[Rfam]
RNA sequence: CUCUUAUCGAGAGCGGCAGAGGGACUGGCCCGAUGAAGCCCGGCAACCUAACUUUAUUUAAGCGUAAAGUGAAGGUGCUAAUUCCAGCAAAAAUGGUGUAUUCCGUUUUGAUAGAUAAGAG
Numbered sequence: 001c002u003c004u005u006a007u008c009g010a011g012a013g014c015g016g017c018a019g020a021g022g023g024a025c026u027g028g029c030c031c032g033a034u035g036a037a038g039c040c041c042g043g044c045a046a047c048c049u050a051a052c053u054u055u056a057u058u059u060a061a062g063c064g065u066a067a068a069g070u071g072a073a074g075g076u077g078c079u080a081a082u083u084c085c086a087g088c089a090a091a092a093a094u095g096g097u098g099u100a101u102u103c104c105g106u107u108u109u110g111a112u113a114g115a116u117a118a119g120a121g
Stems, first nucleotide, its partner, number of pairs: 001121008013041001015040003021031003025087004042079004047075002051070006083113001088110005
The family of this 121-nucleotide RNA sequence from Listeria monocytogenes is "SAM riboswitch aptamer (S box leader)". Gene Ontology term of the family: regulation of gene expression. Rfam's curators put it in the seed alignment.